A member of the RNA family "S-element" from Agrobacterium bohemicum, 72 nucleotides long. Gene Ontology terms of the family: translation regulator activity and mRNA transcription. The base pairs follow the family's consensus structure, which is taken from published work. Lineage of the source: Bacteria > Pseudomonadota > Hyphomicrobiales > Rhizobiaceae > Agrobacterium. This family represents a group of S-elements from p42d and related plasmids. The S-element has multiple functions and is believed to act as a negative regulator of repC transcription, be required for efficient replication and act as a translational enhancer of repC. The family has 29 seed sequences and 231 matches in Rfam 15.1.
[Rfam]
RNA sequence: AGUCAAGAGUCUUGGCAUCGAUAUUUGGUCGGUGGGCGAUUUUCUUUUGCCUUUUUGAAGGUGAAAGACAUG
Numbered sequence: 001a002g003u004c005a006a007g008a009g010u011c012u013u014g015g016c017a018u019c020g021a022u023a024u025u026u027g028g029u030c031g032g033u034g035g036g037c038g039a040u041u042u043u044c045u046u047u048u049g050c051c052u053u054u055u056u057g058a059a060g061g062u063g064a065a066a067g068a069c070a071u072g
Stems, first nucleotide, its partner, number of pairs: 009069003012065002016063004024059004031055002034052001036050004